[Rfam]
RNA sequence: UAAUGCCUGAGGUGCUCGUUACACUCUUAUAUGUUCAACCUACUCAUUUACUUGGGGCGUUUGAUGUGAUGCCGCUGCCAUGCCUCCUUGGAGUGGAAGGCAAAAGCCUAACUAGAAAGCGCCCACCUGCUUAGCGGCGGGUAUGAACAUACGAGAGCACGGUACCAUGGGCGUACA
Numbered sequence: 001u002a003a004u005g006c007c008u009g010a011g012g013u014g015c016u017c018g019u020u021a022c023a024c025u026c027u028u029a030u031a032u033g034u035u036c037a038a039c040c041u042a043c044u045c046a047u048u049u050a051c052u053u054g055g056g057g058c059g060u061u062u063g064a065u066g067u068g069a070u071g072c073c074g075c076u077g078c079c080a081u082g083c084c085u086c087c088u089u090g091g092a093g094u095g096g097a098a099g100g101c102a103a104a105a106g107c108c109u110a111a112c113u114a115g116a117a118a119g120c121g122c123c124c125a126c127c128u129g130c131u132u133a134g135c136g137g138c139g140g141g142u143a144u145g146a147a148c149a150u151a152c153g154a155g156a157g158c159a160c161g162g163u164a165c166c167a168u169g170g171g172c173g174u175a176c177a
Stems, first nucleotide, its partner, number of pairs: 003174007011166005017161003031150003035146003038142003055124003059120004066112002069109001071107002078100002083096002086093001
Dot-bracket structure: ..(((((((.(((((.(((...........(((.((((((..............(((.((((...((.(.((.....((...((.(......).))..)).....)).).))....)))).)))...............))).))).)))........)))))))).)))))))...